[Rfam]
Background:
A member of the RNA family "mir-3389 microRNA precursor family" from Brenthis ino, 67 nucleotides long.

RNA sequence: CCAGUCGUAGCCGAUGUUCCACAGGAGAGGCCCAAGAACCGAGCCCUGUGGAACACCGCACGACACU
Numbered sequence: 001c002c003a004g005u006c007g008u009a010g011c012c013g014a015u016g017u018u019c020c021a022c023a024g025g026a027g028a029g030g031c032c033c034a035a036g037a038a039c040c041g042a043g044c045c046c047u048g049u050g051g052a053a054c055a056c057c058g059c060a061c062g063a064c065a066c067u
Stems, first nucleotide, its partner, number of pairs: 004064005010059002013056001015055006024049001026047002029045003033041001
Taxonomically the source falls in Brenthis (Eukaryota, Lepidoptera, Ditrysia, Nymphalidae). The family has 2 seed sequences and 1,299 matches in Rfam 15.1.